[Rfam]
RNA: Bacterial large signal recognition particle RNA
RNA sequence: CCGUGCUAGACGGGGAGGUAGCGGUGCCCUGUAACCCGCAAUCCGCUAUAGCGGGGUCGAAUACCUGUUUGCGGCAGUUGAUUGUCGAGGUCUGGUUUAAGCACGUAGUGUUGACGAUCGGGUUCUGCGCAACGGAAACUCACGAACCCCGUCAGGUCCGGAAGGAAGCAGCGGUAAGUGAACUUUUCCGUGUGCCGCAGGGGCGCCUGGUCUGAGCUAACGACUUAAAUGCGCUUGGUAGUCAACUGUCAAGGACAGGUGCACGG
Numbered sequence: 001c002c003g004u005g006c007u008a009g010a011c012g013g014g015g016a017g018g019u020a021g022c023g024g025u026g027c028c029c030u031g032u033a034a035c036c037c038g039c040a041a042u043c044c045g046c047u048a049u050a051g052c053g054g055g056g057u058c059g060a061a062u063a064c065c066u067g068u069u070u071g072c073g074g075c076a077g078u079u080g081a082u083u084g085u086c087g088a089g090g091u092c093u094g095g096u097u098u099a100a101g102c103a104c105g106u107a108g109u110g111u112u113g114a115c116g117a118u119c120g121g122g123u124u125c126u127g128c129g130c131a132a133c134g135g136a137a138a139c140u141c142a143c144g145a146a147c148c149c150c151g152u153c154a155g156g157u158c159c160g161g162a163a164g165g166a167a168g169c170a171g172c173g174g175u176a177a178g179u180g181a182a183c184u185u186u187u188c189c190g191u192g193u194g195c196c197g198c199a200g201g202g203g204c205g206c207c208u209g210g211u212c213u214g215a216g217c218u219a220a221c222g223a224c225u226u227a228a229a230u231g232c233g234c235u236u237g238g239u240a241g242u243c244a245a246c247u248g249u250c251a252a253g254g255a256c257a258g259g260u261g262c263a264c265g266g
Stems, first nucleotide, its partner, number of pairs: 001266006009058003012030004017025001019023001035055005064259007073250005080243010093231002097228005105221002107218003116212008124201006130192002133190005140181004149174004157166003